[Rfam]
RNA sequence: GGGUAGAGUACGCCCCCGCGCAAGCGGAUUGGUACUCGCGGGAUCAGUCGGCAAGUGCCCGCGUCGAGCAAAACCCCGACAACC
Numbered sequence: 001g002g003g004u005a006g007a008g009u010a011c012g013c014c015c016c017c018g019c020g021c022a023a024g025c026g027g028a029u030u031g032g033u034a035c036u037c038g039c040g041g042g043a044u045c046a047g048u049c050g051g052c053a054a055g056u057g058c059c060c061g062c063g064u065c066g067a068g069c070a071a072a073a074c075c076c077c078g079a080c081a082a083c084c
Stems, first nucleotide, its partner, number of pairs: 001015004007036005017026003038062005047080005
RNA: Proteo-phage-1 RNA
Organism: Noviherbaspirillum galbum